The family of this 57-nucleotide sequence from Leptolyngbya sp. 'hensonii' is "Nitrogen stress-induced RNA 1". A reference for the family is Ionescu et al. (2010), "Heterocyst-specific transcription of NsiR1, a non-coding RNA encoded in a tandem array of direct repeats in cyanobacteria", J Mol Biol. NCBI's taxonomy places the organism under Bacteria, Cyanobacteriota, Cyanophyceae, Leptolyngbyales, Leptolyngbya. A search with the family's covariance model found it, with a score of 45 bits. The pairing is the family consensus, mapped onto this sequence. It is annotated as a small RNA.
[Rfam]
RNA sequence: UGGUAGAUGCACCCUGAUCAGACCCUGGAAGCUGGAAUAGCUUCCGGGGCUUUUUCA
Numbered sequence: 001u002g003g004u005a006g007a008u009g010c011a012c013c014c015u016g017a018u019c020a021g022a023c024c025c026u027g028g029a030a031g032c033u034g035g036a037a038u039a040g041c042u043u044c045c046g047g048g049g050c051u052u053u054u055u056c057a
Base pairs, nucleotide, nucleotide: 002013003012004011023049024048025047026046027045028044029043030042031041032040033039